[Rfam]
RNA: Purine riboswitch aptamer
RNA sequence: CAAUUCAAUAUGCAAUACCAUCGUAUAUAUUCAGGGAUAUGGCCUGAACGUUUCUACCAAGCUGCCGUAAAUAGCUUGACUACGAGGUAAUGAGAUAGAGUC
Numbered sequence: 001c002a003a004u005u006c007a008a009u010a011u012g013c014a015a016u017a018c019c020a021u022c023g024u025a026u027a028u029a030u031u032c033a034g035g036g037a038u039a040u041g042g043c044c045u046g047a048a049c050g051u052u053u054c055u056a057c058c059a060a061g062c063u064g065c066c067g068u069a070a071a072u073a074g075c076u077u078g079a080c081u082a083c084g085a086g087g088u089a090a091u092g093a094g095a096u097a098g099a100g101u102c
Base pairs, nucleotide, nucleotide: 019087021085022084023083024082025081030048031047032046033045034044035043058078059077060076061075062074063073064072